Shown here is a 359-nucleotide part of an RNA from Salinirubellus salinus, a member of the family "Archaeal large subunit ribosomal RNA". Its family is annotated with structural constituent of ribosome and ribosome in the Gene Ontology. For this family Rfam cites "Crystal structure of the ribosome at 5.5 A resolution" (Yusupov et al., Science, 2001).
RNA sequence: CGGGUACAACCGACGUUAGGGAAUUCGGCAAAUUAGUCCCGUAAGUUCGCGAUAAGGGAUGCCUGCCCAGGAAAUGGGCAGGUCGCAGUGACUCGGGCGCUCCGACUGUCUAGUAACAACAUAGGUGACUGCAAAUCCGAAAGGACUCGUACAGUCACUGAAUCCUGCCCAGUGCGGGUAUCUGAACACCUGGUACAACAGGACGAAGGACCCGUCAACGGCGGGGGUAACUAUGACCCUCUUAAGGUAGCGUAGUACCUUGCCGCUUCAGUAGCGGCUUGCAUGAAUGGAUCAACGAGAGCGCCGCUGUCCCAACGUUGGGCCCGGUGAACCGUACGUUCCAGUGCGGAGUCUGGAGA
Numbered sequence: 001c002g003g004g005u006a007c008a009a010c011c012g013a014c015g016u017u018a019g020g021g022a023a024u025u026c027g028g029c030a031a032a033u034u035a036g037u038c039c040c041g042u043a044a045g046u047u048c049g050c051g052a053u054a055a056g057g058g059a060u061g062c063c064u065g066c067c068c069a070g071g072a073a074a075u076g077g078g079c080a081g082g083u084c085g086c087a088g089u090g091a092c093u094c095g096g097g098c099g100c101u102c103c104g105a106c107u108g109u110c111u112a113g114u115a116a117c118a119a120c121a122u123a124g125g126u127g128a129c130u131g132c133a134a135a136u137c138c139g140a141a142a143g144g145a146c147u148c149g150u151a152c153a154g155u156c157a158c159u160g161a162a163u164c165c166u167g168c169c170c171a172g173u174g175c176g177g178g179u180a181u182c183u184g185a186a187c188a189c190c191u192g193g194u195a196c197a198a199c200a201g202g203a204c205g206a207a208g209g210a211c212c213c214g215u216c217a218a219c220g221g222c223g224g225g226g227g228u229a230a231c232u233a234u235g236a237c238c239c240u241c242u243u244a245a246g247g248u249a250g251c252g253u254a255g256u257a258c259c260u261u262g263c264c265g266c267u268u269c270a271g272u273a274g275c276g277g278c279u280u281g282c283a284u285g286a287a288u289g290g291a292u293c294a295a296c297g298a299g300a301g302c303g304c305c306g307c308u309g310u311c312c313c314a315a316c317g318u319u320g321g322g323c324c325c326g327g328u329g330a331a332c333c334g335u336a337c338g339u340u341c342c343a344g345u346g347c348g349g350a351g352u353c354u355g356g357a358g359a
Stems, first nucleotide, its partner, number of pairs: 001326004010321008019312003036060005045050001061083009084088001096305007103297002107121003124159008132149001136145003162292004167222003172219002174215005181210003189202004223241006242246001262278006340357005